[Rfam]
A member of the RNA family "Mammalian CPEB3 ribozyme" from Alligator mississippiensis, 76 nucleotides long.
RNA sequence: AGAGCAAGUUUGAGGCCAUAACAGAAGCACUCAUGGUGCAGCCAUGUCAGAUUCCAAUAAACCUGUGAAUUCUGCU
Numbered sequence: 001a002g003a004g005c006a007a008g009u010u011u012g013a014g015g016c017c018a019u020a021a022c023a024g025a026a027g028c029a030c031u032c033a034u035g036g037u038g039c040a041g042c043c044a045u046g047u048c049a050g051a052u053u054c055c056a057a058u059a060a061a062c063c064u065g066u067g068a069a070u071u072c073u074g075c076u
Stems, first nucleotide, its partner, number of pairs: 014043003020076001022074005027039003048065003052061002

Annotation:
Rfam's curators write: The mammalian CPEB3 ribozyme is a self cleaving RNA located in the second intron of the CPEB3 gene which belongs to a family of genes regulating messenger RNA polyadenylation. Pairs were carried over by alignment from the consensus structure, which is taken from published work. NCBI's taxonomy places the organism under Eukaryota, Sauria, Alligatoridae, Alligatorinae, Alligator.